Small nucleolar RNA SNORD22: a 124-nucleotide sequence from Grallaria varia. Its family is annotated with nucleolus and RNA processing in the Gene Ontology. Pairs were carried over by alignment from the consensus structure, which was predicted with PFOLD. The match comes from Rfam's covariance-model search (63 bits). On this family, see Tycowski et al., Nature 1996: "A mammalian gene with introns instead of exons generating stable RNA products". The organism belongs to Grallaria, within Eukaryota.
[Rfam]
RNA sequence: CCCCCAUGAGGAAACUUCCACGUCCGACCCCCCUGGUGGGCCCAGUACCUGUCAAGGUGGAACCCACUGGUGUCCCCGGGGGGGACAGGAGGACAGCCAGUCCCGAGGGGACGGUCUGAGGGGG
Number, nucleotide and partner (000 for none) at each position: 001c123002c122003c121004c120005c000006a000007u000008g000009a000010g000011g000012a000013a000014a000015c000016u000017u000018c000019c000020a000021c000022g000023u000024c000025c000026g000027a000028c000029c000030c000031c000032c000033c000034u000035g000036g000037u000038g000039g000040g000041c000042c000043c000044a000045g000046u000047a000048c000049c000050u000051g000052u000053c000054a000055a000056g000057g000058u000059g000060g000061a000062a000063c000064c000065c000066a000067c000068u000069g000070g000071u000072g000073u000074c000075c000076c000077c000078g000079g000080g000081g000082g000083g000084g000085a000086c000087a000088g000089g000090a000091g000092g000093a000094c000095a000096g000097c000098c000099a000100g000101u000102c000103c000104c000105g000106a000107g000108g000109g000110g000111a000112c000113g000114g000115u000116c000117u000118g000119a000120g004121g003122g002123g001124g000